This 102-nucleotide sequence from Lupinus angustifolius belongs to the Rfam family "Small nucleolar RNA snoR99". By type it is an H/ACA-box small nucleolar RNA. Gene Ontology terms of the family: RNA processing and nucleolus. The literature on the family includes a 2002 paper in Curr Biol by Marker et al., "Experimental RNomics: identification of 140 candidates for small non-messenger RNAs in the plant Arabidopsis thaliana".
RNA sequence: CUGCGUAAUGGAUGAACAGGUCACAUAUAUUCAAUUUAUCCAUCUGAUCACUUUGCCGGUCAUUUUUCAAUAUACUGCUUAUCAUUAUAGGGUGGAACCUUU
Number, nucleotide and partner (000 for none) at each position: 001c000002u000003g000004c000005g000006u000007a000008a000009u000010g000011g000012a000013u000014g000015a000016a000017c000018a000019g000020g000021u000022c000023a000024c000025a000026u000027a000028u000029a000030u000031u000032c000033a000034a000035u000036u000037u000038a000039u096040c095041c094042a093043u092044c091045u000046g000047a000048u000049c000050a000051c000052u000053u000054u000055g082056c000057c000058g079059g078060u077061c000062a000063u000064u000065u000066u000067u000068c000069a000070a000071u000072a000073u000074a000075c000076u000077g060078c059079u058080u000081a000082u055083c000084a000085u000086u000087a000088u000089a000090g000091g044092g043093u042094g041095g040096a039097a000098c000099c000100u000101u000102u000